[Rfam]
RNA sequence: CGCUUACCAAUGAUGGUGAAAAAUAAAUGUCUGAACAAAUGAACUUAUCAUGAUAUCAGUAUUUUCUCUGAGGUAAGCG
Dot-bracket structure: .(((((((...............................................................))))))).